[Rfam]
RNA sequence: GGCCACCCUAGCCCGACGGGGCGAAAAGCGGAUUCCCCAUCCGCCUGGGUGGCCGGUCUAUUCAGAAUGG
Numbered sequence: 001g002g003c004c005a006c007c008c009u010a011g012c013c014c015g016a017c018g019g020g021g022c023g024a025a026a027a028g029c030g031g032a033u034u035c036c037c038c039a040u041c042c043g044c045c046u047g048g049g050u051g052g053c054c055g056g057u058c059u060a061u062u063c064a065g066a067a068u069g070g
Stems, first nucleotide, its partner, number of pairs: 001054008011022004028044004035070002040065001

int-alpA RNA: a 70-nucleotide RNA sequence from Pseudomonas sp. ABC1. Acidobacteria (1 example), Planctomycetes (1 example), Proteobacteria. By type it is a small RNA.